[Rfam]
RNA sequence: AGCACCUUUAAAUCAGUCCCGUGAGGCUGGCAAGGUAACGUGAACGAGGUUUGCGUAGGGUUCCUCUAACUGUGUGCGGCACAGUUAUGGUUUCUUUCUGCACACCUUUGGACAGUCGCGACAGUAGGUUCGCGGCUAGAGAACUCCUUGCCUGGAAUGGGCGAGGAGUUUUUUUAU
Numbered sequence: 001a002g003c004a005c006c007u008u009u010a011a012a013u014c015a016g017u018c019c020c021g022u023g024a025g026g027c028u029g030g031c032a033a034g035g036u037a038a039c040g041u042g043a044a045c046g047a048g049g050u051u052u053g054c055g056u057a058g059g060g061u062u063c064c065u066c067u068a069a070c071u072g073u074g075u076g077c078g079g080c081a082c083a084g085u086u087a088u089g090g091u092u093u094c095u096u097u098c099u100g101c102a103c104a105c106c107u108u109u110g111g112a113c114a115g116u117c118g119c120g121a122c123a124g125u126a127g128g129u130u131c132g133c134g135g136c137u138a139g140a141g142a143a144c145u146c147c148u149u150g151c152c153u154g155g156a157a158u159g160g161g162c163g164a165g166g167a168g169u170u171u172u173u174u175u176a177u
Base pairs, nucleotide, nucleotide: 004036005035006034007033008032013030014029015028016027017026018025042077044075045074046073048071049070050069051068053066055064140172141171142170143169144168145167146166147165148164149163150162151161152160153159
The family of this 177-nucleotide RNA from Paenibacillus yonginensis is "PyrR binding site".
About the family: This family represents the PyrR binding site and terminator structure.
Rfam 15.1 lists 1,498 matches to the family in 930 species.